About this RNA:
The record is a 198-nucleotide RNA sequence from Medicago truncatula, which matches "MIR2670 microRNA precursor family" in Rfam. Its family is annotated with miRNA-mediated post-transcriptional gene silencing and RISC complex in the Gene Ontology.
[Rfam]
RNA sequence: UUGGGGUAAAAUAGUGAGCAGCCUUCUUGGGGAAAAUACAUCUUCUACCCUUGGGCUAAAUUUAAAUUUGUUUUUUUUUACCCCAAAAAGAUUCUUUUUACUCACGGUAAAAAGUUUUUGGGGUUUAAAAAAACAAAUUUAAACUUAUCCCAUGGGUCGAUCACUUCCCCAAGUCAGCUCCUCACUAUUUUACCCCGA
Numbered sequence: 001u002u003g004g005g006g007u008a009a010a011a012u013a014g015u016g017a018g019c020a021g022c023c024u025u026c027u028u029g030g031g032g033a034a035a036a037u038a039c040a041u042c043u044u045c046u047a048c049c050c051u052u053g054g055g056c057u058a059a060a061u062u063u064a065a066a067u068u069u070g071u072u073u074u075u076u077u078u079u080a081c082c083c084c085a086a087a088a089a090g091a092u093u094c095u096u097u098u099u100a101c102u103c104a105c106g107g108u109a110a111a112a113a114g115u116u117u118u119u120g121g122g123g124u125u126u127a128a129a130a131a132a133a134c135a136a137a138u139u140u141a142a143a144c145u146u147a148u149c150c151c152a153u154g155g156g157u158c159g160a161u162c163a164c165u166u167c168c169c170c171a172a173g174u175c176a177g178c179u180c181c182u183c184a185c186u187a188u189u190u191u192a193c194c195c196c197g198a
Base pairs, nucleotide, nucleotide: 003196004195005194006193007192008191009190010189011188012187013186014185015184016183017182018181020179021178022177026173027172028171029170030169031168032167033166034165044160047157048156049155052152053151054150055149057147058146059145062142063141064140065139066138067137068136069135070134072132073131074130075129078128080124081123082122083121084120085119086118094114095113096112097111098110099109100108101107102106